[Rfam]
RNA sequence: AGCUCUUACAGCUCUGUUAAGAAUUUUUGUAGCAGGUUUUGCUGACUUUGUUUGGAAAAACCCAU
Numbered sequence: 001a002g003c004u005c006u007u008a009c010a011g012c013u014c015u016g017u018u019a020a021g022a023a024u025u026u027u028u029g030u031a032g033c034a035g036g037u038u039u040u041g042c043u044g045a046c047u048u049u050g051u052u053u054g055g056a057a058a059a060a061c062c063c064a065u
Base pairs, nucleotide, nucleotide: 035062036061037060038059039058040057042055043054044053045052
RNA: U7 small nuclear RNA